[Rfam]
RNA sequence: UCGCAGGGGCUUAUCGCGACCGCCCCGUGAGGCGUCAGCCCAAGGAUCGCGUCCACACUCCUUGCUCAAGGAUGGACGCUCAUG
Numbered sequence: 001u002c003g004c005a006g007g008g009g010c011u012u013a014u015c016g017c018g019a020c021c022g023c024c025c026c027g028u029g030a031g032g033c034g035u036c037a038g039c040c041c042a043a044g045g046a047u048c049g050c051g052u053c054c055a056c057a058c059u060c061c062u063u064g065c066u067c068a069a070g071g072a073u074g075g076a077c078g079c080u081c082a083u084g
Stems, first nucleotide, its partner, number of pairs: 006026005049079006

Rfam assigns this 84-nucleotide sequence from Allobosea sp. Root483D1 to the family "chrB-a RNA". The family's consensus secondary structure is taken from published work. A search with the family's covariance model found it, with a score of 66 bits. Rfam classes the family as a cis-regulatory element. NCBI's taxonomy places the organism under Bacteria, Pseudomonadati, Alphaproteobacteria, Hyphomicrobiales, Allobosea.